[Rfam]
RNA: msiK RNA
RNA sequence: AGAAGCACUUCCUCCACUACGGAUCGUCGGGCACGUACCUGCCCGUGGAAAGGAAUGU
Numbered sequence: 001a002g003a004a005g006c007a008c009u010u011c012c013u014c015c016a017c018u019a020c021g022g023a024u025c026g027u028c029g030g031g032c033a034c035g036u037a038c039c040u041g042c043c044c045g046u047g048g049a050a051a052g053g054a055a056u057g058u
Base pairs, nucleotide, nucleotide: 010052013049014048015047016046028045029044030043031042032041033040